[Rfam]
RNA sequence: CGCUGCUCGACAAUGCCCUGAGCAAGAAGCCGCAGGUUGUACAGAUCGAGCCGACCGACAAGGCAUUCAGGACAUCCGGAUGCCAGCCCUGGCAGAUCACCGGCGAGGGCACCGCGCCGGCGGAAGUUCCGGGGCCCGCGGCAGGUGCCCAGCUGCAAACCGAUCUGGCGAUCCUCAACGGGCUGCUUGGCCCGACCGGCCAACGGGUG
Numbered sequence: 001c002g003c004u005g006c007u008c009g010a011c012a013a014u015g016c017c018c019u020g021a022g023c024a025a026g027a028a029g030c031c032g033c034a035g036g037u038u039g040u041a042c043a044g045a046u047c048g049a050g051c052c053g054a055c056c057g058a059c060a061a062g063g064c065a066u067u068c069a070g071g072a073c074a075u076c077c078g079g080a081u082g083c084c085a086g087c088c089c090u091g092g093c094a095g096a097u098c099a100c101c102g103g104c105g106a107g108g109g110c111a112c113c114g115c116g117c118c119g120g121c122g123g124a125a126g127u128u129c130c131g132g133g134g135c136c137c138g139c140g141g142c143a144g145g146u147g148c149c150c151a152g153c154u155g156c157a158a159a160c161c162g163a164u165c166u167g168g169c170g171a172u173c174c175u176c177a178a179c180g181g182g183c184u185g186c187u188u189g190g191c192c193c194g195a196c197c198g199g200c201c202a203a204c205g206g207g208u209g
Base pairs, nucleotide, nucleotide: 001205002204004202005201008199015023016022029037030036031035039077041075044073046070048068049067050066053064055063056062081094082093083092084091085090098120101114102113103112105110123150126148127147129145130144132142161198162197166194167193168192173190174189
The record is a 209-nucleotide sequence from Mycobacterium kansasii, which matches "Mycobacterium sRNA 6715" in Rfam.
Rfam describes the family as follows. First sRNA identified as a potential biomarker for the detection of MTB in patients.
The literature on the family includes a 2017 paper in J Cell Mol Med by Kanniappan et al., "RNomic identification and evaluation of npcTB_6715, a non-protein-coding RNA gene as a potential biomarker for the detection of Mycobacterium tuberculosis".
By type it is a small RNA.